[Rfam]
RNA sequence: GGUUCAAUGCCACGUCGCUGAUAGCUAUUUGCUUUGACCAGCGAUGCUAUGAUUGGACCAAGAACAAGAGUUUCACUUGUUUCGCAUCUUGAUAGGAACCUGCGGAUUUCAAUAUUCUAUGAUCUGUGGAGCCGUUUUCUGCGAUUACAUUC
Numbered sequence: 001g002g003u004u005c006a007a008u009g010c011c012a013c014g015u016c017g018c019u020g021a022u023a024g025c026u027a028u029u030u031g032c033u034u035u036g037a038c039c040a041g042c043g044a045u046g047c048u049a050u051g052a053u054u055g056g057a058c059c060a061a062g063a064a065c066a067a068g069a070g071u072u073u074c075a076c077u078u079g080u081u082u083c084g085c086a087u088c089u090u091g092a093u094a095g096g097a098a099c100c101u102g103c104g105g106a107u108u109u110c111a112a113u114a115u116u117c118u119a120u121g122a123u124c125u126g127u128g129g130a131g132c133c134g135u136u137u138u139c140u141g142c143g144a145u146u147a148c149a150u151u152c
Base pairs, nucleotide, nucleotide: 002058003057004056005055006054007053008052009050013046014045015044016043017042018041020039022037024032025031082144083143084142085141086140095133096132100129101128102127104125105124106123107122108121
RNA: Small nucleolar RNA snoR2/U65
Organism: Arachis hypogaea